[Rfam]
The family of this 194-nucleotide RNA sequence from Gordonia humi is "c-di-AMP riboswitch aptamer (ydaO/yuaA leader)".
About the family: This family represents a conserved RNA structure found upstream of the ydaO and yuaA genes in Bacillus subtilis and related genes in other bacteria. The ydaO/yuaA element is thought to act as a genetic 'off' switch for the ydaO and yuaA genes in its native state. It is believed that the element may be triggered during osmotic shock leading to activation of ydaO, a predicted amino acid transporter gene, and members of the yuaA-yubG operon which code for KtrA and KtrB K+ transporters.
Lineage of the source: Bacteria > Actinomycetes > Mycobacteriales > Gordoniaceae > Gordonia.

RNA sequence: GGAGGGUCACCGCCUAAUCGCCUUCACCCUCCGAAGGCGAACCGGGGAACCACUUCUUUCACGGGCGUGUGCGAACGCGCCGGCGAAUCGGGGUGAAUCGCGGUCCGACGGUCGAUGACACCGUCGUAGCGCGUAGGGCCAUCUCUUCCGGCCCGAAUCCGACAGCUAACCCGGUCGGCGGUCAGGGAGAACAA
Number, nucleotide and partner (000 for none) at each position: 001g000002g000003a000004g000005g000006g000007u000008c000009a000010c000011c180012g179013c178014c177015u000016a000017a000018u040019c039020g038021c037022c036023u035024u034025c033026a000027c000028c000029c000030u000031c000032c000033g025034a024035a023036g022037g021038c020039g019040a018041a175042c174043c173044g172045g171046g170047g000048a000049a000050c000051c090052a000053c000054u000055u000056c000057u000058u000059u000060c000061a000062c000063g000064g000065g000066c000067g000068u000069g000070u000071g000072c000073g000074a000075a000076c000077g000078c000079g000080c000081c000082g000083g000084c000085g000086a000087a000088u000089c000090g051091g160092g159093g158094u000095g000096a000097a000098u000099c133100g132101c131102g130103g000104u000105c000106c000107g000108a000109c000110g000111g000112u000113c000114g000115a000116u000117g000118a000119c000120a000121c000122c000123g000124u000125c000126g000127u000128a000129g000130c102131g101132c100133g099134u000135a000136g154137g153138g152139c151140c000141a000142u000143c000144u000145c000146u000147u000148c000149c000150g000151g139152c138153c137154c136155g000156a000157a000158u093159c092160c091161g000162a000163c000164a000165g000166c000167u000168a000169a000170c046171c045172c044173g043174g042175u041176c000177g014178g013179c012180g011181g000182u000183c000184a000185g000186g000187g000188a000189g000190a000191a000192c000193a000194a000